A member of the RNA family "mir-210 microRNA precursor family" from Dendroctonus ponderosae, 96 nucleotides long. The literature on the family includes a 2005 paper in Proc Natl Acad Sci U S A by Cai et al., "Kaposi's sarcoma-associated herpesvirus expresses an array of viral microRNAs in latently infected cells". It scores 74 bits against the family's covariance model. Taxonomically the source falls in Dendroctonus (Eukaryota, Ecdysozoa, Pterygota, Polyphaga).
RNA sequence: UUGAAACCCACUGCAGCUGCUGGACGCUGCACAAGAGAGAUUUUUAAAACUCUUGUGCGUGUGACAGCGGCUAUUGUGGGACUUCUCAAACAACAU
Numbered sequence: 001u002u003g004a005a006a007c008c009c010a011c012u013g014c015a016g017c018u019g020c021u022g023g024a025c026g027c028u029g030c031a032c033a034a035g036a037g038a039g040a041u042u043u044u045u046a047a048a049a050c051u052c053u054u055g056u057g058c059g060u061g062u063g064a065c066a067g068c069g070g071c072u073a074u075u076g077u078g079g080g081a082c083u084u085c086u087c088a089a090a091c092a093a094c095a096u
Stems, first nucleotide, its partner, number of pairs: 007080005015072008025061002028059006035052002